[Rfam]
RNA sequence: GCCCAAAGUCGCACGUGCCUGUGGGUGUCCGCCGAUCCUCGAAUGGUGAGGAAUUCGGUACGGUACCUGGACCUAACCGCUCCAGUUGAUCUGUUGGCCAACCGCCAGAUCAAGGACAUCUUGAAGCAACGACGGUGCGGGCCUUU
Numbered sequence: 001g002c003c004c005a006a007a008g009u010c011g012c013a014c015g016u017g018c019c020u021g022u023g024g025g026u027g028u029c030c031g032c033c034g035a036u037c038c039u040c041g042a043a044u045g046g047u048g049a050g051g052a053a054u055u056c057g058g059u060a061c062g063g064u065a066c067c068u069g070g071a072c073c074u075a076a077c078c079g080c081u082c083c084a085g086u087u088g089a090u091c092u093g094u095u096g097g098c099c100a101a102c103c104g105c106c107a108g109a110u111c112a113a114g115g116a117c118a119u120c121u122u123g124a125a126g127c128a129a130c131g132a133c134g135g136u137g138c139g140g141g142c143c144u145u146u
Stems, first nucleotide, its partner, number of pairs: 001142004008133004016128003023121008031059005037051005067085005086113004092107002095104003